The record is a 97-nucleotide sequence from Musa troglodytarum, which matches "Small nucleolar RNA R64/Z200 family" in Rfam. On this family, see Galardi et al., Mol Cell Biol 2002: "Purified box C/D snoRNPs are able to reproduce site-specific 2'-O-methylation of target RNA in vitro".
[Rfam]
RNA sequence: GUUAUGCUAUGAUGAAUUAUGAAAUGUAAUCUUCGCAUGUCAGACUUCAGAGAUACUCGAGUAUCGAUGAGAAGUCAUUUCAUUCUUCUGAGCAAAC
Numbered sequence: 001g002u003u004a005u006g007c008u009a010u011g012a013u014g015a016a017u018u019a020u021g022a023a024a025u026g027u028a029a030u031c032u033u034c035g036c037a038u039g040u041c042a043g044a045c046u047u048c049a050g051a052g053a054u055a056c057u058c059g060a061g062u063a064u065c066g067a068u069g070a071g072a073a074g075u076c077a078u079u080u081c082a083u084u085c086u087u088c089u090g091a092g093c094a095a096a097c
Base pairs, nucleotide, nucleotide: 001097002096003095005094006093007092052065053064054063055062